[Rfam]
Nucleotides: 327
Stems, first nucleotide, its partner, number of pairs: 001108001003106001005102007013093002018090002025086006032079002035074001037070003042067004046062002119167003122139001124137002127135001140162003147158003200270003207263001209261005221252004228246004293327001295325001297322002300319001302315005
Number, partner (000 for none) and nucleotide at each position: 001108g002000a003106a004000u005102g006101u007100g008099a009098g010097g011096g012000u013093g014092a015000u016000c017000u018090g019089g020000c021000u022000g023000c024000a025086a026085c027084a028083u029082c030081u031000g032079u033078c034000a035074c036000c037070u038069c039068a040000u041000u042067g043066a044065u045064c046062g047061c048000c049000a050000g051000g052000g053000u054000u055000g056000a057000u058000u059000c060000a061047g062046c063000u064045g065044a066043u067042c068039u069038g070037g071000c072000u073000u074035g075000c076000u077000a078033g079032g080000a081030g082029g083028g084027u085026g086025u087000c088000c089019c090018c091000u092014u093013c094000c095000u096011c097010c098009c099008u100007c101006a102005c103000c104000g105000c106003u107000c108001c109000a110000u111000u112000u113000g114000c115000g116000u117000c118000c119167c120166u121165c122139c123000c124137g125136a126000a127135g128000a129000u130000g131000c132000g133000c134000g135127c136125u137124u138000a139122g140162u141161c142160g143000a144000a145000g146000a147158g148157g149156a150000u151000g152000a153000c154000c155000u156149u157148c158147c159000c160142c161141g162140a163000u164000a165121g166120a167119g168000a169000c170000a171000u172000a173000c174000c175000g176000u177000u178000c179000a180000u181000u182000g183000g184000u185000c186000a187000a188000g189000g190000g191000u192000a193000c194000a195000g196000g197000g198000u199000a200270g201269c202268u203000g204000c205000a206000c207263u208000c209261c210260c211259c212258u213257g214000c215000u216000a217000g218000a219000a220000c221252c222251u223250c224249c225000a226000a227000a228246c229245a230244a231243a232000c233000u234000c235000a236000a237000g238000g239000u240000c241000c242000a243231u244230u245229u246228g247000c248000a249224g250223g251222a252221g253000a254000a255000c256000a257213c258212a259211g260210g261209g262000c263207a264000a265000u266000c267000a268202a269201g270200c271000u272000u273000c274000c275000a276000a277000g278000a279000c280000u281000g282000c283000a284000g285000a286000c287000a288000c289000a290000u291000c292000c293327a294000a295325u296000c297322u298321u299000u300319u301000u302315u303314u304313u305312g306311u307000g308000c309000c310000g311306a312305c313304a314303g315302a316000g317000u318000u319300g320000u321298g322297a323000u324000u325295a326000a327293u

The record is a 327-nucleotide RNA from Arenaria interpres, which matches "7SK RNA" in Rfam. Clan: 7SK clan. From the family's description: 7SK was discovered as an abundant small nuclear RNA in the mid-70s but a possible function has only recently been suggested. The family's consensus secondary structure is taken from published work.